[Rfam]
RNA sequence: UGGCUUCAGAGAACAUUCAACGCUGUCGGUGAGUUUGGGAAAGUGUCAUAAUGUAAACCAUCGGCCGUUGACUGUACCCUGAGGCUUU
Numbered sequence: 001u002g003g004c005u006u007c008a009g010a011g012a013a014c015a016u017u018c019a020a021c022g023c024u025g026u027c028g029g030u031g032a033g034u035u036u037g038g039g040a041a042a043g044u045g046u047c048a049u050a051a052u053g054u055a056a057a058c059c060a061u062c063g064g065c066c067g068u069u070g071a072c073u074g075u076a077c078c079c080u081g082a083g084g085c086u087u088u
Stems, first nucleotide, its partner, number of pairs: 002087002004084005014074002017071006025065007033058004
RNA: mir-181 microRNA precursor family